[Rfam]
RNA sequence: AUAUUGUUAGGGCAAACCUGUCUAAAGACAGGGACGCAAAGCCAUAGGGUCUACGGUGCAAAAAGCACUAUGAUAGCCUGGUUGCUAAA
Number, nucleotide and partner (000 for none) at each position: 001a000002u000003a000004u000005u000006g000007u000008u000009a000010g000011g000012g037013c036014a000015a000016a000017c032018c031019u030020g029021u028022c027023u000024a000025a000026a000027g022028a021029c020030a019031g018032g017033g000034a000035c000036g013037c012038a000039a000040a083041g082042c081043c080044a000045u000046a079047g078048g077049g074050u073051c072052u000053a000054c000055g000056g068057u067058g066059c065060a000061a000062a000063a000064a000065g059066c058067a057068c056069u000070a000071u000072g051073a050074u049075a000076g000077c048078c047079u046080g043081g042082u041083u040084g000085c000086u000087a000088a000089a000

The family of this 89-nucleotide sequence from Sinanaerobacter chloroacetimidivorans is "c-di-GMP-I riboswitch aptamer".
A search with the family's covariance model found it, with a score of 78 bits.
The base pairs follow the family's consensus structure, which is taken from published work.